[Rfam]
RNA sequence: GGUGCAAGUGACGAUGAAAAGACAGGGACAUCAGAGAUUCUCCGAUUAGGAGAAUCUAAAAUGAUGACUAAUGUCUAAAUGGGAAUCUCUCUGAUGCACU
Numbered sequence: 001g002g003u004g005c006a007a008g009u010g011a012c013g014a015u016g017a018a019a020a021g022a023c024a025g026g027g028a029c030a031u032c033a034g035a036g037a038u039u040c041u042c043c044g045a046u047u048a049g050g051a052g053a054a055u056c057u058a059a060a061a062u063g064a065u066g067a068c069u070a071a072u073g074u075c076u077a078a079a080u081g082g083g084a085a086u087c088u089c090u091c092u093g094a095u096g097c098a099c100u
Stems, first nucleotide, its partner, number of pairs: 002099005
RNA: Small nucleolar RNA R44/J54/Z268 family